[Rfam]
Background: The record is an 86-nucleotide sequence from Citrus unshiu, which matches "Small nucleolar RNA R32/R81/Z41" in Rfam. Rfam 15.1 lists 238 matches to the family in 139 species. Lineage of the source: Eukaryota > Streptophytina > Tracheophyta > eudicotyledons > Citrus.
RNA sequence: AUAUGAAAAUGAGGAAAGUUAAUGCAAAGGUGAUGAUUAAUUUCAUUUGAUCAAAACCUAUUCGCUACGUUCUUUCUGAUUCAUUU
Numbered sequence: 001a002u003a004u005g006a007a008a009a010u011g012a013g014g015a016a017a018g019u020u021a022a023u024g025c026a027a028a029g030g031u032g033a034u035g036a037u038u039a040a041u042u043u044c045a046u047u048u049g050a051u052c053a054a055a056a057c058c059u060a061u062u063c064g065c066u067a068c069g070u071u072c073u074u075u076c077u078g079a080u081u082c083a084u085u086u
Stems, first nucleotide, its partner, number of pairs: 004083004
The literature on the family includes a 2001 paper in J Mol Biol by Barneche et al., "Identification of 66 box C/D snoRNAs in Arabidopsis thaliana: extensive gene duplications generated multiple isoforms predicting new ribosomal RNA 2'-O-methylation sites". By type it is a C/D-box small nucleolar RNA.